Rfam assigns this 375-nucleotide RNA sequence from Penicillium griseofulvum to the family "Nuclear RNase P". Taxonomically the source falls in Penicillium (Eukaryota, Pezizomycotina, Eurotiomycetidae, Eurotiales). On this family, see Xiao et al., Annu Rev Biochem 2002: "Eukaryotic Ribonuclease P: A Plurality of Ribonucleoprotein Enzymes".
RNA sequence: UCACGGCCCGUCCUCGCAGCUCUGGGUUCCGACCAGAGCCGCGAGACCCUUUGCAAAUGAGAAAUUCGGAGGAAUCUUCAAACCACAACCCGCGUCGUCGUUCGUUUUCGCGCGUCGGCGCCGGUCCUGCCCGUGAGGGCCUGGUGUGAUCCUAGAUCACUUCUUACCCACACUUGCACUUGACAUCAGAAACAUCGGGUGAAGGGGCGGGGCUUGUGGUGACUUGUUGUCAUGGGCCUUGUCCUGAAGCCCUUGGGAGAGUCGGUGCGGAGAUUGUGUGUGAUGACACUUUAGUGCAAUACGCAGCAUACCUUGCUCUGUCUUCUCUUCGGAGGGAUGGAUGGUAUCAUUCGAUUCCGAUCAUUCUGGUGGGGA
Numbered sequence: 001u002c003a004c005g006g007c008c009c010g011u012c013c014u015c016g017c018a019g020c021u022c023u024g025g026g027u028u029c030c031g032a033c034c035a036g037a038g039c040c041g042c043g044a045g046a047c048c049c050u051u052u053g054c055a056a057a058u059g060a061g062a063a064a065u066u067c068g069g070a071g072g073a074a075u076c077u078u079c080a081a082a083c084c085a086c087a088a089c090c091c092g093c094g095u096c097g098u099c100g101u102u103c104g105u106u107u108u109c110g111c112g113c114g115u116c117g118g119c120g121c122c123g124g125u126c127c128u129g130c131c132c133g134u135g136a137g138g139g140c141c142u143g144g145u146g147u148g149a150u151c152c153u154a155g156a157u158c159a160c161u162u163c164u165u166a167c168c169c170a171c172a173c174u175u176g177c178a179c180u181u182g183a184c185a186u187c188a189g190a191a192a193c194a195u196c197g198g199g200u201g202a203a204g205g206g207g208c209g210g211g212g213c214u215u216g217u218g219g220u221g222a223c224u225u226g227u228u229g230u231c232a233u234g235g236g237c238c239u240u241g242u243c244c245u246g247a248a249g250c251c252c253u254u255g256g257g258a259g260a261g262u263c264g265g266u267g268c269g270g271a272g273a274u275u276g277u278g279u280g281u282g283a284u285g286a287c288a289c290u291u292u293a294g295u296g297c298a299a300u301a302c303g304c305a306g307c308a309u310a311c312c313u314u315g316c317u318c319u320g321u322c323u324u325c326u327c328u329u330c331g332g333a334g335g336g337a338u339g340g341a342u343g344g345u346a347u348c349a350u351u352c353g354a355u356u357c358c359g360a361u362c363a364u365u366c367u368g369g370u371g372g373g374g375a
Stems, first nucleotide, its partner, number of pairs: 001375002004372001008369003014306001016304002024049005029043001067359005076272004129140004143174005176268004182263003198252002308347005314341001